[Rfam]
RNA: c-di-AMP riboswitch aptamer (ydaO/yuaA leader)
RNA sequence: UCAGCAGAUAUGCCUAAUCUCGGGCACCUUGCCCGAGAGUCGGGGAACCACCGCAAUUGGGGUGAACCACUCCGGUGGAAGGGCUGCUCCGGCCCGAACCCGUCAGCUAACCCGGCCGGCAGAAGGAGAGGAGAG
Number, nucleotide and partner (000 for none) at each position: 001u000002c000003a000004g000005c000006a000007g000008a000009u000010a000011u121012g120013c119014c118015u000016a000017a000018u038019c037020u036021c035022g034023g033024g032025c031026a030027c000028c000029u000030u026031g025032c024033c023034c022035g021036a020037g019038a018039g116040u115041c114042g113043g112044g111045g000046a000047a000048c000049c059050a058051c000052c000053g000054c000055a000056a000057u000058u050059g049060g101061g100062g099063u000064g000065a000066a000067c078068c077069a076070c075071u000072c000073c000074g000075g070076u069077g068078g067079a000080a000081g095082g094083g093084c092085u000086g000087c000088u000089c000090c000091g000092g084093c083094c082095c081096g000097a000098a000099c062100c061101c060102g000103u000104c000105a000106g000107c000108u000109a000110a000111c044112c043113c042114g041115g040116c039117c000118g014119g013120c012121a011122g000123a000124a000125g000126g000127a000128g000129a000130g000131g000132a000133g000134a000135g000